[Rfam]
RNA sequence: GGCCAGGGGGAAAGAAAUGCUACAUGAUGAAACACCUAAAAUGGGCAAGCAGGGAGCUGGAAAGAUUUUCACUUAACCCUGACC
Numbered sequence: 001g002g003c004c005a006g007g008g009g010g011a012a013a014g015a016a017a018u019g020c021u022a023c024a025u026g027a028u029g030a031a032a033c034a035c036c037u038a039a040a041a042u043g044g045g046c047a048a049g050c051a052g053g054g055a056g057c058u059g060g061a062a063a064g065a066u067u068u069u070c071a072c073u074u075a076a077c078c079c080u081g082a083c084c
Base pairs, nucleotide, nucleotide: 001084002083004081005080006079007078008077